[Rfam]
RNA sequence: AAGUAACACUCUGUGGCAGAUAACCAAAAUUGUCUGACACAAUUUGAGCUUGCUAUAACAAGAAAGUCUAACCUAUUCCGUGUUCUCUUUUCUGUGAGACUAGCCGUUAUAUAGACUUAAACACU
Numbered sequence: 001a002a003g004u005a006a007c008a009c010u011c012u013g014u015g016g017c018a019g020a021u022a023a024c025c026a027a028a029a030u031u032g033u034c035u036g037a038c039a040c041a042a043u044u045u046g047a048g049c050u051u052g053c054u055a056u057a058a059c060a061a062g063a064a065a066g067u068c069u070a071a072c073c074u075a076u077u078c079c080g081u082g083u084u085c086u087c088u089u090u091u092c093u094g095u096g097a098g099a100c101u102a103g104c105c106g107u108u109a110u111a112u113a114g115a116c117u118u119a120a121a122c123a124c125u
Stems, first nucleotide, its partner, number of pairs: 009048003012041004017036006064118007074111003079106001080104002086099004
Shown here is a 125-nucleotide RNA from Bos grunniens, a member of the family "Small nucleolar RNA SNORA28". Its family is annotated with nucleolus and RNA processing in the Gene Ontology. The family's RNA type in Rfam is H/ACA-box small nucleolar RNA. It scores 139 bits against the family's covariance model. The source organism's lineage runs through Eukaryota, Euteleostomi, Bovidae, Bovinae and Bos. ACA28 is a member of the H/ACA class of snoRNA that guide the sites of modification of uridines to pseudouridines. For this family Rfam cites "RNomics: an experimental approach that identifies 201 candidates for novel, small, non-messenger RNAs in mouse" (Huttenhofer et al., EMBO J, 2001).